The record is a 121-nucleotide sequence from Acetoanaerobium sticklandii, which matches "Ribosomal protein L20 leader" in Rfam.
RNA sequence: UUAAUGAAGUAGAAGUAUCCGCUUCUCACCUUAUUGCAAAUGAGCGUAUAAGGUUAUGAUAAAGGAUGUUAUUAUGUCUUUAUUUGCGGAUAGCUUAUGCUAUCCGCAUUUUUUAUAUGAU
Numbered sequence: 001u002u003a004a005u006g007a008a009g010u011a012g013a014a015g016u017a018u019c020c021g022c023u024u025c026u027c028a029c030c031u032u033a034u035u036g037c038a039a040a041u042g043a044g045c046g047u048a049u050a051a052g053g054u055u056a057u058g059a060u061a062a063a064g065g066a067u068g069u070u071a072u073u074a075u076g077u078c079u080u081u082a083u084u085u086g087c088g089g090a091u092a093g094c095u096u097a098u099g100c101u102a103u104c105c106g107c108a109u110u111u112u113u114u115a116u117a118u119g120a121u
Stems, first nucleotide, its partner, number of pairs: 011026006028054003033049002036045002085108010
Rfam's curators write: This family is a putative r-protein leader autoregulatory structure found in B. subtilis and other low-GC Gram-positive bacteria. It is located in the 5' untranslated regions of mRNAs encoding initiation factor 3 followed by ribosomal proteins L35 and L20 (infC-rpmI-rplT). A Rho-independent transcription terminator structure that is probably involved in regulation is included at the 3' end. Gene Ontology term of the family: regulation of gene expression. On this family, see Zengel and Lindahl, Prog Nucleic Acid Res Mol Biol 1994: "Diverse mechanisms for regulating ribosomal protein synthesis in Escherichia coli". A search with the family's covariance model found it, with a score of 74 bits.